[Rfam]
Nucleotides: 059
Base pairs, nucleotide, nucleotide: 001058003056005054006053007052008051010048011047012046013045014044015043016042017041020039021038022037023036024035
Number, partner (000 for none) and nucleotide at each position: 001058c002000a003056u004000u005054g006053u007052c008051u009000u010048c011047a012046c013045g014044a015043u016042g017041u018000u019000g020039g021038a022037c023036g024035c025000g026000a027000u028000a029000u030000u031000g032000a033000a034000a035024g036023c037022g038021u039020u040000a041017a042016c043015a044014u045013c046012g047011u048010g049000u050000u051008a052007g053006g054005c055000u056003a057000a058001g059000g